Shown here is a 130-nucleotide RNA sequence from Cricetulus griseus, a member of the family "Small nucleolar RNA SNORA24".
Rfam links the family to the GO terms nucleolus and RNA processing.
Rfam 15.1 lists 852 matches to the family in 501 species.
RNA sequence: CUGCAGGUGUCUUUGGGACCUGUCAUCUGUGGCAGCCCCCCUUCCUGGUCAUGGAAAAACAUGUUCCUGUUCGUGGGAAAGCUGUCACCAUUUCAUUGGUAUCCUAUUCUGAUUCACGUUGAUAACAUUC
Numbered sequence: 001c002u003g004c005a006g007g008u009g010u011c012u013u014u015g016g017g018a019c020c021u022g023u024c025a026u027c028u029g030u031g032g033c034a035g036c037c038c039c040c041c042u043u044c045c046u047g048g049u050c051a052u053g054g055a056a057a058a059a060c061a062u063g064u065u066c067c068u069g070u071u072c073g074u075g076g077g078a079a080a081g082c083u084g085u086c087a088c089c090a091u092u093u094c095a096u097u098g099g100u101a102u103c104c105u106a107u108u109c110u111g112a113u114u115c116a117c118g119u120u121g122a123u124a125a126c127a128u129u130c
Stems, first nucleotide, its partner, number of pairs: 002055001004053002007050001015041003020035005068127004074121003077117001079114001084103001087100004